[Rfam]
RNA sequence: ACUUAUGUGGCGGAACAGGUAGACGCGUGGGACUUAAAAUCUCAUUCCAUAGGAGUGCCGGUUCGAUUCCGGUCAUAAGUA
Numbered sequence: 001a002c003u004u005a006u007g008u009g010g011c012g013g014a015a016c017a018g019g020u021a022g023a024c025g026c027g028u029g030g031g032a033c034u035u036a037a038a039a040u041c042u043c044a045u046u047c048c049a050u051a052g053g054a055g056u057g058c059c060g061g062u063u064c065g066a067u068u069c070c071g072g073u074c075a076u077a078a079g080u081a
Base pairs, nucleotide, nucleotide: 001080002079003078004077005076006075007074010026011025012024028044029043030042031041032040057073058072059071060070061069
About this RNA:
This 81-nucleotide RNA from Tetrahymena pyriformis belongs to the Rfam family "tRNA". The base pairs follow the family's consensus structure, which is taken from published work.